Annotation:
RAGATH-23 RNA: a 98-nucleotide RNA sequence. Rfam's curators put it in the seed alignment. It is annotated as a small RNA.

RNA sequence: GCAAGAUGCAGCUUAAAAUAAAUGGUAGUUAUACCCCGCAUGAUUAACUACAGGAUUUAACAUUCAGGGGGCGGACUCUUCCCCCUGGGUGUAUGCCU
Number, nucleotide and partner (000 for none) at each position: 001g000002c000003a000004a000005g000006a000007u000008g000009c000010a000011g000012c000013u000014u000015a000016a000017a000018a000019u000020a000021a000022a000023u000024g000025g051026u050027a049028g048029u047030u046031a045032u000033a000034c000035c000036c000037c000038g000039c000040a000041u000042g000043a000044u000045u031046a030047a029048c028049u027050a026051c025052a000053g000054g000055a000056u000057u000058u000059a000060a092061c091062a090063u089064u088065c087066a086067g085068g084069g083070g082071g081072c000073g000074g000075a000076c000077u000078c000079u000080u000081c071082c070083c069084c068085c067086u066087g065088g064089g063090u062091g061092u060093a000094u000095g000096c000097c000098u000